A member of the RNA family "Mason-Pfizer monkey virus packaging signal" from Rhinopithecus bieti, 274 nucleotides long. Rfam's curators write: This family represents a group of sequences that are related to the Mason-Pfizer monkey virus (MPMV) packaging signal. A reference for the family is Mustafa et al. (2004), "Mutational analysis of the predicted secondary RNA structure of the Mason-Pfizer monkey virus packaging signal", Virus Res. NCBI's taxonomy places the organism under Eukaryota, Deuterostomia, Dipnotetrapodomorpha, Boreoeutheria, Rhinopithecus. Rfam classes the family as a cis-regulatory element.
[Rfam]
RNA sequence: UGGCGCCCGAACAGGGACCUGGACACAGGGAAAAAGAGAGGAAGAAGGCACUAAAGUCGGCUGAAAGUGAAAGUGGAAGAAAUUCCUCCAGACAUCGCGGGAGCCUGCCACGUUGAAACCAGAGGUGAGUAAUAGUGUCUGAUUAUUGGACAAGAAUUAAGCCAGCAUCAAAUUUAUGUAGGGCAAUUAAAAGAGGCUUUAAAAACACGAGGAGUAAAGGUUAAAAGUAAUGAUUUGUUUAAGUUUUUUGAUUUUGUAAAAGAAACCUGCCCUU
Numbered sequence: 001u002g003g004c005g006c007c008c009g010a011a012c013a014g015g016g017a018c019c020u021g022g023a024c025a026c027a028g029g030g031a032a033a034a035a036g037a038g039a040g041g042a043a044g045a046a047g048g049c050a051c052u053a054a055a056g057u058c059g060g061c062u063g064a065a066a067g068u069g070a071a072a073g074u075g076g077a078a079g080a081a082a083u084u085c086c087u088c089c090a091g092a093c094a095u096c097g098c099g100g101g102a103g104c105c106u107g108c109c110a111c112g113u114u115g116a117a118a119c120c121a122g123a124g125g126u127g128a129g130u131a132a133u134a135g136u137g138u139c140u141g142a143u144u145a146u147u148g149g150a151c152a153a154g155a156a157u158u159a160a161g162c163c164a165g166c167a168u169c170a171a172a173u174u175u176a177u178g179u180a181g182g183g184c185a186a187u188u189a190a191a192a193g194a195g196g197c198u199u200u201a202a203a204a205a206c207a208c209g210a211g212g213a214g215u216a217a218a219g220g221u222u223a224a225a226a227g228u229a230a231u232g233a234u235u236u237g238u239u240u241a242a243g244u245u246u247u248u249u250g251a252u253u254u255u256g257u258a259a260a261a262g263a264a265a266c267c268u269g270c271c272c273u274u
Base pairs, nucleotide, nucleotide: 006030007029008028015024083127085125087122093115096112097111099109100108133153135151136150138149139148141146158201159200160199161197162196163195208250209249210248211247212246213245214244215243218236219235220234221233222232223231259274260273262271